[Rfam]
RNA sequence: UUUUCGAUAGUUUUUAUCAGAUUCCUGUUCUGAUAAAAGUUAGUGAAAUUUGCUUCACUAACGUACCGACUCGCAGUGAAUUGACACCGAGGCGAUACGUUCUUUU
Numbered sequence: 001u002u003u004u005c006g007a008u009a010g011u012u013u014u015u016a017u018c019a020g021a022u023u024c025c026u027g028u029u030c031u032g033a034u035a036a037a038a039g040u041u042a043g044u045g046a047a048a049u050u051u052g053c054u055u056c057a058c059u060a061a062c063g064u065a066c067c068g069a070c071u072c073g074c075a076g077u078g079a080a081u082u083g084a085c086a087c088c089g090a091g092g093c094g095a096u097a098c099g100u101u102c103u104u105u106u
Stems, first nucleotide, its partner, number of pairs: 002048005008042012060101006067094002070091004076087003
RNA: 23S methyl RNA motif
Organism: Vagococcus salmoninarum